Shown here is a 118-nucleotide RNA from Caloranaerobacter sp. TR13, a member of the family "Molybdenum/Tungsten riboswitch aptamer (Moco RNA motif)". The family's consensus secondary structure is taken from published work. NCBI's taxonomy places the organism under Bacteria, Bacillati, Tissierellia, Thermohalobacteraceae, Caloranaerobacter. Its family is annotated with tungstate binding, regulation of gene expression and molybdenum ion binding in the Gene Ontology.

RNA sequence: UCUAUUCAAAUUUUCCGAGCUUAAUAUCCUAAGGCUAUGCUAUGGAUAUUAAGCCGAUGGGUAUAGAGAGAAAUCUUUAUGCCUCCCGUGUUUGGAAAGGAAAAUUUGGGUCAGUUGA
Numbered sequence: 001u002c003u004a005u006u007c008a009a010a011u012u013u014u015c016c017g018a019g020c021u022u023a024a025u026a027u028c029c030u031a032a033g034g035c036u037a038u039g040c041u042a043u044g045g046a047u048a049u050u051a052a053g054c055c056g057a058u059g060g061g062u063a064u065a066g067a068g069a070g071a072a073a074u075c076u077u078u079a080u081g082c083c084u085c086c087c088g089u090g091u092u093u094g095g096a097a098a099g100g101a102a103a104a105u106u107u108g109g110g111u112c113a114g115u116u117g118a
Stems, first nucleotide, its partner, number of pairs: 004111001006109001011104006019054011033041003059084011085095002